The family of this 102-nucleotide RNA sequence from Bacillus methanolicus is "Purine riboswitch aptamer". The organism belongs to Bacillus methanolicus, within Bacteria. The match comes from Rfam's covariance-model search (90 bits). Pairs were carried over by alignment from the consensus structure, which is taken from published work.

[Rfam]
RNA sequence: AAUAUUGUAAGCAAAAACCUUCAUAUAUCCUCGAUAAUAUGGUUCGAAAGUUUCUACCAAAUCACCGUAAAUGAUUUGACUAUGAAGGCAGAUGAUUCUAUA
Numbered sequence: 001a002a003u004a005u006u007g008u009a010a011g012c013a014a015a016a017a018c019c020u021u022c023a024u025a026u027a028u029c030c031u032c033g034a035u036a037a038u039a040u041g042g043u044u045c046g047a048a049a050g051u052u053u054c055u056a057c058c059a060a061a062u063c064a065c066c067g068u069a070a071a072u073g074a075u076u077u078g079a080c081u082a083u084g085a086a087g088g089c090a091g092a093u094g095a096u097u098c099u100a101u102a
Base pairs, nucleotide, nucleotide: 018088019087020086021085022084023083024082025081031047032046033045034044058078059077060076061075062074063073064072